[Rfam]
RNA sequence: AGCUGAUUUUUCCUUGUUUAUGAGUCCAAAAAUAAUGCUCAUGAACAGGAGUAAAUCAGCUCU
Numbered sequence: 001a002g003c004u005g006a007u008u009u010u011u012c013c014u015u016g017u018u019u020a021u022g023a024g025u026c027c028a029a030a031a032a033u034a035a036u037g038c039u040c041a042u043g044a045a046c047a048g049g050a051g052u053a054a055a056u057c058a059g060c061u062c063u
Stems, first nucleotide, its partner, number of pairs: 001061003005057005010051004015047008
Background: Shown here is a 63-nucleotide RNA sequence from Caenorhabditis brenneri, a member of the family "mir-35_2 microRNA precursor family". Clan: mir-36 clan. The match comes from Rfam's covariance-model search (51 bits). Taxonomically the source falls in Caenorhabditis (Eukaryota, Eumetazoa, Protostomia, Peloderinae).